This 112-nucleotide RNA sequence from Sphingopyxis sp. MC1 belongs to the Rfam family "TPP riboswitch aptamer (THI element)".
RNA sequence: GCUUCGUCCCCGGGGAGCCUGCCGUGCAAUCGCAGGUUGAGAGCGGAAUAGACCGCGACCCGUCGAACCUGAUCCCGGUAAUACGGGCGGAGGGAGGGCGCGCGCUGGAUCG
Numbered sequence: 001g002c003u004u005c006g007u008c009c010c011c012g013g014g015g016a017g018c019c020u021g022c023c024g025u026g027c028a029a030u031c032g033c034a035g036g037u038u039g040a041g042a043g044c045g046g047a048a049u050a051g052a053c054c055g056c057g058a059c060c061c062g063u064c065g066a067a068c069c070u071g072a073u074c075c076c077g078g079u080a081a082u083a084c085g086g087g088c089g090g091a092g093g094g095a096g097g098g099c100g101c102g103c104g105c106u107g108g109a110u111c112g
Base pairs, nucleotide, nucleotide: 008098009097010096011062012061013060014059017037018036019035020034021033044055045054046053068093069092070091074087075086076085077084